Shown here is a 337-nucleotide RNA sequence from Loxodonta africana, a member of the family "TrkB IRES". It is annotated as an internal ribosome entry site. From the family's description: This family represents the TrkB internal ribosome entry site (IRES) which is present in the 5' leader sequence of the mRNA. TrkB is a neurotrophin receptor which is essential for the development and maintenance of the nervous system. The IRES element allows cap-independent translation of TrkB which may be needed for efficient translation in neuronal dendrites. It is one of the family's seed sequences. Taxonomically the source falls in Loxodonta (Eukaryota, Craniata, Amniota, Elephantidae). Pairs were carried over by alignment from the consensus structure, which was predicted with RNAfold. Its family is annotated with ribosome binding in the Gene Ontology. A reference for the family is Dobson et al. (2005), "Internal initiation of translation of the TrkB mRNA is mediated by multiple regions within the 5' leader", Nucleic Acids Res.
[Rfam]
RNA sequence: UCCCCGUGCGCAUUUAACCAGGAGCCUGCGCGGGAGCCAGUCCCGGGAGCGCCGCCGGCCGGUGCCCACCGCGCCAGGCCAUGCAGCGGCGGCCGCGGCGGAGAUCUGAGCGGCGGUAGCGCCCCCUGUGAGGUUGCCCUCAAUGCCCCAGGCACUGUGAACCGUGCCGUCAGCCGGGACACACUCAGCCCCGGAGACGCUCGGCUCUGCACGCCGGCGACCAGCACCGACUAGUCCGAAGGACCGGCGAGCGCGGGGAAGGCCGCUCGGCGCGGGCAGAGGAAGCCGACCGGUGCAGCGCGAGGACACGCACUUGGGCUGACUCGGGCUGGCACUG
Numbered sequence: 001u002c003c004c005c006g007u008g009c010g011c012a013u014u015u016a017a018c019c020a021g022g023a024g025c026c027u028g029c030g031c032g033g034g035a036g037c038c039a040g041u042c043c044c045g046g047g048a049g050c051g052c053c054g055c056c057g058g059c060c061g062g063u064g065c066c067c068a069c070c071g072c073g074c075c076a077g078g079c080c081a082u083g084c085a086g087c088g089g090c091g092g093c094c095g096c097g098g099c100g101g102a103g104a105u106c107u108g109a110g111c112g113g114c115g116g117u118a119g120c121g122c123c124c125c126c127u128g129u130g131a132g133g134u135u136g137c138c139c140u141c142a143a144u145g146c147c148c149c150a151g152g153c154a155c156u157g158u159g160a161a162c163c164g165u166g167c168c169g170u171c172a173g174c175c176g177g178g179a180c181a182c183a184c185u186c187a188g189c190c191c192c193g194g195a196g197a198c199g200c201u202c203g204g205c206u207c208u209g210c211a212c213g214c215c216g217g218c219g220a221c222c223a224g225c226a227c228c229g230a231c232u233a234g235u236c237c238g239a240a241g242g243a244c245c246g247g248c249g250a251g252c253g254c255g256g257g258g259a260a261g262g263c264c265g266c267u268c269g270g271c272g273c274g275g276g277c278a279g280a281g282g283a284a285g286c287c288g289a290c291c292g293g294u295g296c297a298g299c300g301c302g303a304g305g306a307c308a309c310g311c312a313c314u315u316g317g318g319c320u321g322a323c324u325c326g327g328g329c330u331g332g333c334a335c336u337g
Stems, first nucleotide, its partner, number of pairs: 001282002004279001006277002009274002021043003026036002045268003049264001051263003057111001060108003065101002067098001070095002073093003078087002113158005119153001122151001128146003133141001162258002165255003169252002173248002177245001182242001185239002188236001191234001193232002198203001206230002209227001213225002285333004290328002293325001295323001297320003301316004